[Rfam]
RNA sequence: CUACCCCAUGAUGUUCAGGUCCGCCGCAUCCCCUGUAUCGUGGGGCCGGUCGGUCAGAGUGUAAUAUACGCGGAGUCCUCGUUCUGCCGUUACUUUCUGACCGACCCCCAA
Numbered sequence: 001c002u003a004c005c006c007c008a009u010g011a012u013g014u015u016c017a018g019g020u021c022c023g024c025c026g027c028a029u030c031c032c033c034u035g036u037a038u039c040g041u042g043g044g045g046c047c048g049g050u051c052g053g054u055c056a057g058a059g060u061g062u063a064a065u066a067u068a069c070g071c072g073g074a075g076u077c078c079u080c081g082u083u084c085u086g087c088c089g090u091u092a093c094u095u096u097c098u099g100a101c102c103g104a105c106c107c108c109c110a111a
Stems, first nucleotide, its partner, number of pairs: 004045007014037001016035004048106011
Notes
The record is a 111-nucleotide sequence from Phytoamicus setariae, which matches "EcpR1" in Rfam. A reference for the family is Robledo et al. (2015), "A stress-induced small RNA modulates alpha-rhizobial cell cycle progression", PLoS Genet. The source organism's lineage runs through Bacteria, Pseudomonadati, Pseudomonadota, Hyphomicrobiales and Phytoamicus. The base pairs follow the family's consensus structure, which was predicted with WAR. About the family: Perviously named SmelC291, SmrC10, or Sra33. According to its overproduction phenotype it was renamed Elongated Cell Phenotype RNA1. Induced by stress,EcpR1 negatively regulates cell cycle master regulatory genes dnaA and gcrA at post-transcriptional level by base pairing between its strongly conserved GC-rich loop and the target mRNAs. It's regulation is hfq-independent but requires RNase E to regulate dnaA.